[Rfam]
RNA sequence: AGCUCUGUGAUUAAAAUUUUCUGAAGGCAAUAUACGUUAUUCUGAUUAUAUAUGAGCAGAGAAUCAUUUAUAAUGAGAGCU
Numbered sequence: 001a002g003c004u005c006u007g008u009g010a011u012u013a014a015a016a017u018u019u020u021c022u023g024a025a026g027g028c029a030a031u032a033u034a035c036g037u038u039a040u041u042c043u044g045a046u047u048a049u050a051u052a053u054g055a056g057c058a059g060a061g062a063a064u065c066a067u068u069u070a071u072a073a074u075g076a077g078a079g080c081u
Base pairs, nucleotide, nucleotide: 001081002080003079004078005077
Rfam assigns this 81-nucleotide RNA sequence from Apium graveolens to the family "Small nucleolar RNA U54". Rfam classes the family as a C/D-box small nucleolar RNA. Rfam's curators write: U54 is a C/D box small nucleolar RNA, which acts as a methylation guide for 18S ribosomal RNA in plants. Gene Ontology terms of the family: RNA processing and nucleolus. Clan: U54 clan.